The record is a 273-nucleotide RNA from Polychaeton citri, which matches "Fungal signal recognition particle RNA" in Rfam. The family's RNA type in Rfam is non-coding RNA gene. Rfam 15.1 lists 748 matches to the family in 741 species.
RNA sequence: UAGCUGUAGUGGCUCAAUGGGUGAAGUCUCCCUUCGCCCCGCCCGUUCCCUGACUUUAAUCAAACCGGCAACUGCGUGCCCAGUUCGAAUUUGGUGGUGGUCACCCACUCGUCUCGGCAACGGACGAUUGCUGCGUGUGACCCUAAGUUUCUGGAGUAACCUUCAGCCGAGCAAUCGGGCAGAGAUCUCCAGGCCAUGAAGUGGCGGCGCUGGACUACACGUGUUGUUGGCGGGAACGCGGUAAGGCGGUUAUGGGGAGUGCGACAUCUUUUU
Numbered sequence: 001u002a003g004c005u006g007u008a009g010u011g012g013c014u015c016a017a018u019g020g021g022u023g024a025a026g027u028c029u030c031c032c033u034u035c036g037c038c039c040c041g042c043c044c045g046u047u048c049c050c051u052g053a054c055u056u057u058a059a060u061c062a063a064a065c066c067g068g069c070a071a072c073u074g075c076g077u078g079c080c081c082a083g084u085u086c087g088a089a090u091u092u093g094g095u096g097g098u099g100g101u102c103a104c105c106c107a108c109u110c111g112u113c114u115c116g117g118c119a120a121c122g123g124a125c126g127a128u129u130g131c132u133g134c135g136u137g138u139g140a141c142c143c144u145a146a147g148u149u150u151c152u153g154g155a156g157u158a159a160c161c162u163u164c165a166g167c168c169g170a171g172c173a174a175u176c177g178g179g180c181a182g183a184g185a186u187c188u189c190c191a192g193g194c195c196a197u198g199a200a201g202u203g204g205c206g207g208c209g210c211u212g213g214a215c216u217a218c219a220c221g222u223g224u225u226g227u228u229g230g231c232g233g234g235a236a237c238g239c240g241g242u243a244a245g246g247c248g249g250u251u252a253u254g255g256g257g258a259g260u261g262c263g264a265c266a267u268c269u270u271u272u273u
Stems, first nucleotide, its partner, number of pairs: 002014003017271001019269005028259006035248004041242003044238007071225001073223006080213005085207003089202004094197004099142001101140004105133001106130002109127005115122002143147001150193007161184003168177003